[Rfam]
RNA sequence: GCGGAUGGCUGGAUGGCCGCGGGCCUCUGGGCCCGAGGAAAGUCCGGACUCCAUGAAGCUACGGUGCCGGGUAACGCCCGGCCGGGGAAACCCGAGGGAAAGCGCCACAGAGAACAGACCGCCCCGGAUCCGUCCGGGGCAAGGGUGAAACGGUGGGGUAAGAGCCCACCGCGGGACGGGCAACCGGACCGGCACGGCAAGCCCCACCGGGAGCAAUGCCAAAUAGGGGCCUCGCGCGGGGCUGAUCGGGAAACCGAUAUCGCCGCAGGGACGCUUCAUCCCGAGAGGCCCGGGUUGGCAGCACGAGCCCGUCGGCAACGUCGGGCCUAGAUGAAUGGCCAUCCAGGGGGGCAACCCCCGGACAGAAUCCGGCUUACAGGCCAUCCGCGCUU
Numbered sequence: 001g002c003g004g005a006u007g008g009c010u011g012g013a014u015g016g017c018c019g020c021g022g023g024c025c026u027c028u029g030g031g032c033c034c035g036a037g038g039a040a041a042g043u044c045c046g047g048a049c050u051c052c053a054u055g056a057a058g059c060u061a062c063g064g065u066g067c068c069g070g071g072u073a074a075c076g077c078c079c080g081g082c083c084g085g086g087g088a089a090a091c092c093c094g095a096g097g098g099a100a101a102g103c104g105c106c107a108c109a110g111a112g113a114a115c116a117g118a119c120c121g122c123c124c125c126g127g128a129u130c131c132g133u134c135c136g137g138g139g140c141a142a143g144g145g146u147g148a149a150a151c152g153g154u155g156g157g158g159u160a161a162g163a164g165c166c167c168a169c170c171g172c173g174g175g176a177c178g179g180g181c182a183a184c185c186g187g188a189c190c191g192g193c194a195c196g197g198c199a200a201g202c203c204c205c206a207c208c209g210g211g212a213g214c215a216a217u218g219c220c221a222a223a224u225a226g227g228g229g230c231c232u233c234g235c236g237c238g239g240g241g242c243u244g245a246u247c248g249g250g251a252a253a254c255c256g257a258u259a260u261c262g263c264c265g266c267a268g269g270g271a272c273g274c275u276u277c278a279u280c281c282c283g284a285g286a287g288g289c290c291c292g293g294g295u296u297g298g299c300a301g302c303a304c305g306a307g308c309c310c311g312u313c314g315g316c317a318a319c320g321u322c323g324g325g326c327c328u329a330g331a332u333g334a335a336u337g338g339c340c341a342u343c344c345a346g347g348g349g350g351g352c353a354a355c356c357c358c359c360g361g362a363c364a365g366a367a368u369c370c371g372g373c374u375u376a377c378a379g380g381c382c383a384u385c386c387g388c389g390c391u392u
Base pairs, nucleotide, nucleotide: 001388002387003386004385005384006383007382008381009380010379011377012343013342014341015340016339017338018337020035021034022033023032024031025030040375041374042373044372045371046370047369048368049213050212051211052210058276062209063208064207065206066205067081068080069079070078071077082096083094084093085092086091097204098203102202103201104198105197106196119144120143121140122139123138124137125136126135127134128133152170153169154168155167156166157165171193172191173190174189177186178185179184217300218299219298220297227291228290229289230288231287232286268282269281270280271279307326308325309324310323311322313320314319
The record is a 392-nucleotide RNA sequence from Albidovulum inexpectatum, which matches "Bacterial RNase P class A" in Rfam. Its family is annotated with ribonuclease P activity, tRNA processing and dimeric ribonuclease P complex in the Gene Ontology. The family's consensus secondary structure is taken from published work. It scores 292 bits against the family's covariance model.